[Rfam]
Nucleotides: 182
Stems, first nucleotide, its partner, number of pairs: 026077007035070006045062007079149001081147002084143002086140007151181008161172004
Number, partner (000 for none) and nucleotide at each position: 001000a002000c003000g004000u005000u006000u007000u008000u009000u010000u011000c012000a013000u014000a015000g016000a017000g018000a019000u020000u021000u022000a023000g024000a025000u026077u027076u028075a029074a030073g031072g032071u033000u034000a035070g036069a037068a038067g039066a040065a041000u042000u043000g044000u045062g046061g047060a048059a049058g050057u051056c052000g053000u054000g055000a056051g057050a058049c059048u060047u061046c062045c063000c064000u065040u066039u067038u068037u069036u070035c071032a072031u073030c074029u075028u076027a077026a078000c079149g080000u081147u082146u083000g084143c085142u086140a087139u088138c089137c090136u091135u092134u093000c094000u095000u096000u097000a098000u099000u100000u101000a102000u103000a104000u105000g106000u107000u108000u109000c110000c111000c112000u113000a114000a115000g116000u117000g118000u119000g120000u121000u122000a123000c124000a125000a126000a127000a128000a129000a130000a131000a132000u133000a134092a135091a136090a137089g138088g139087a140086u141000a142085a143084g144000u145000a146082a147081a148000c149079c150000u151181a152180a153179a154178a155177a156176g157175c158174c159000a160000u161172c162171u163170u164169c165000g166000u167000g168000a169164g170163a171162a172161g173000g174158g175157g176156c177155u178154u179153u180152u181151u182000u